[Rfam]
Small nucleolar RNA SNORA47: a 148-nucleotide RNA sequence from Megalops atlanticus.
Gene Ontology terms of the family: nucleolus and RNA processing.
A search with the family's covariance model found it, with a score of 60 bits.
By type it is an H/ACA-box small nucleolar RNA.

RNA sequence: UGGAGGAUUGAGAAGGUUUAGCAGCUUGAAAACAAGUGCUGCUAUAACUGGUUAUAACCUCCUAAAGUAAAAAAAAAAAAAGCAGCAGAUGCAUCGACCCGGCUCUGCGGAAACACACCGGAGCCCCCGCUGCAUCUGCGGACACGCU
Numbered sequence: 001u002g003g004a005g006g007a008u009u010g011a012g013a014a015g016g017u018u019u020a021g022c023a024g025c026u027u028g029a030a031a032a033c034a035a036g037u038g039c040u041g042c043u044a045u046a047a048c049u050g051g052u053u054a055u056a057a058c059c060u061c062c063u064a065a066a067g068u069a070a071a072a073a074a075a076a077a078a079a080a081a082g083c084a085g086c087a088g089a090u091g092c093a094u095c096g097a098c099c100c101g102g103c104u105c106u107g108c109g110g111a112a113a114c115a116c117a118c119c120g121g122a123g124c125c126c127c128c129g130c131u132g133c134a135u136c137u138g139c140g141g142a143c144a145c146g147c148u
Stems, first nucleotide, its partner, number of pairs: 002062005015049004019044007082139002088136002091133003101125007
Dot-bracket structure: .(((((........(((((((((((............))))))).))))........)))))...................((....((.(((.......(((((((...........))))))).....))).)).)).........